[Rfam]
RNA sequence: UCUAGAACUCGAUAUAUGGGUUGAACACUGAACAGUGUCUGGGCUGUAAAACAUAUUCGGGCUUAUCCAUUGUUGUUAUAAUUUGGACUUGAAAACGGCCUUUUUAAAUCUUAGACUCCACAUGAAAGUAAGAGGCCUAUGUCUUACCUUUCUAUC
Numbered sequence: 001u002c003u004a005g006a007a008c009u010c011g012a013u014a015u016a017u018g019g020g021u022u023g024a025a026c027a028c029u030g031a032a033c034a035g036u037g038u039c040u041g042g043g044c045u046g047u048a049a050a051a052c053a054u055a056u057u058c059g060g061g062c063u064u065a066u067c068c069a070u071u072g073u074u075g076u077u078a079u080a081a082u083u084u085g086g087a088c089u090u091g092a093a094a095a096c097g098g099c100c101u102u103u104u105u106a107a108a109u110c111u112u113a114g115a116c117u118c119c120a121c122a123u124g125a126a127a128g129u130a131a132g133a134g135g136c137c138u139a140u141g142u143c144u145u146a147c148c149u150u151u152c153u154a155u156c
Stems, first nucleotide, its partner, number of pairs: 003154005009146001011145002014142007021134002027129003035123003041119003045115001048112002051109001055104001059100002062098002072088003
Rfam assigns this 156-nucleotide RNA from Populus tomentosa to the family "MIR2912 microRNA precursor family". Its family is annotated with miRNA-mediated post-transcriptional gene silencing and RISC complex in the Gene Ontology. NCBI's taxonomy places the organism under Eukaryota, Mesangiospermae, Pentapetalae, rosids, Populus.